[Rfam]
RNA sequence: UAGCGCCGCCCUCCUUGGGCGUUUCCUCCCUAGACUUCGGGCCGCUUUUUAGCGGCCCUUUUUUCUUGUCCGG
Numbered sequence: 001u002a003g004c005g006c007c008g009c010c011c012u013c014c015u016u017g018g019g020c021g022u023u024u025c026c027u028c029c030c031u032a033g034a035c036u037u038c039g040g041g042c043c044g045c046u047u048u049u050u051a052g053c054g055g056c057c058c059u060u061u062u063u064u065c066u067u068g069u070c071c072g073g
Stems, first nucleotide, its partner, number of pairs: 008020004039058008
Makes More Granules Regulator RNA (mmgR): a 73-nucleotide RNA from Roseibium limicola. NCBI's taxonomy places the organism under Bacteria, Pseudomonadati, Pseudomonadota, Hyphomicrobiales, Roseibium. Rfam classes the family as a small RNA. Its Rfam clan is "suhB sRNA clan". Rfam 15.1 lists 1,791 matches to the family in 918 species. Its family is annotated with DNA-templated transcription, termination, response to nitrogen compound and protein binding in the Gene Ontology.